Rfam assigns this 133-nucleotide sequence from Dehalococcoides mccartyi to the family "Ribosomal protein L10 leader". Pairs were carried over by alignment from the consensus structure, which was predicted with CMfinder. Rfam describes the family as follows. This family is a putative r-protein leader autoregulatory structure found in B. subtilis and other low-GC Gram-positive bacteria. It is located in the 5' untranslated regions of mRNAs encoding ribosomal proteins L10 and L12 (rplJ-rplL).
RNA sequence: UUUUAUAACUGAAUAUUUCCUGAGACGUGGGUGCCUUCGGGCUUAAUACGCUGCCUGCUGAGGAUACAAGACUUUUUACUAAGGGUUUUCUUGAGUCCUUGUGCUUUGGCAUAAGGACUUUAUUUUUUUAGAA
Dot-bracket structure: ..........................(((((((((....)))..........))))))....................................((((((((((....))))))))))...............

It is annotated as a cis-regulatory leader.